[Rfam]
RNA: mir-365 microRNA precursor family
RNA sequence: CCGCAGGGAAAAUGAGGGACUUUUGGGGGCAGGUGUGUUUCAGCUGCAUAAUCAUAAUGCCCCUAAAAAUCCUUAUUGUUCUUGCA
Number, nucleotide and partner (000 for none) at each position: 001c000002c000003g000004c000005a000006g000007g000008g000009a000010a000011a000012a000013u000014g000015a074016g073017g072018g071019a070020c000021u068022u067023u066024u000025g064026g063027g062028g061029g060030c059031a058032g000033g000034u056035g055036u054037g053038u000039u000040u000041c000042a000043g000044c000045u000046g000047c000048a000049u000050a000051a000052u000053c037054a036055u035056a034057a000058u031059g030060c029061c028062c027063c026064u025065a000066a023067a022068a021069a000070u019071c018072c017073u016074u015075a000076u000077u000078g000079u000080u000081c000082u000083u000084g000085c000086a000